RNA sequence: CCCGGAUUUCCGGGACGAAAUGUGGUCGGCCUGACCGACUGAAUCGCAAG
Numbered sequence: 001c002c003c004g005g006a007u008u009u010c011c012g013g014g015a016c017g018a019a020a021u022g023u024g025g026u027c028g029g030c031c032u033g034a035c036c037g038a039c040u041g042a043a044u045c046g047c048a049a050g
Stems, first nucleotide, its partner, number of pairs: 001014005016046003024040005